[Rfam]
RNA sequence: CCCACACUCAUGUGUGUAAGACCCCAAAGGAUCACCAUUAAAUUUGGCACAGAUCUCUAGAAAAGUUAUCACAUGGUUGUAGGACUUAACUUUUCUAGAGAUCUGUGUCAAAUUUAACGGUGAUCCUUAAAGGUCCUAUACACAUGGAUGUGGG
Numbered sequence: 001c002c003c004a005c006a007c008u009c010a011u012g013u014g015u016g017u018a019a020g021a022c023c024c025c026a027a028a029g030g031a032u033c034a035c036c037a038u039u040a041a042a043u044u045u046g047g048c049a050c051a052g053a054u055c056u057c058u059a060g061a062a063a064a065g066u067u068a069u070c071a072c073a074u075g076g077u078u079g080u081a082g083g084a085c086u087u088a089a090c091u092u093u094u095c096u097a098g099a100g101a102u103c104u105g106u107g108u109c110a111a112a113u114u115u116a117a118c119g120g121u122g123a124u125c126c127u128u129a130a131a132g133g134u135c136c137u138a139u140a141c142a143c144a145u146g147g148a149u150g151u152g153g154g
Stems, first nucleotide, its partner, number of pairs: 002153005008147006015140004020135004027128002030125003034121003038117031069082001071080003
A member of the RNA family "MIR8565 microRNA precursor family" from Amborella trichopoda, 154 nucleotides long. It scores 137 bits against the family's covariance model.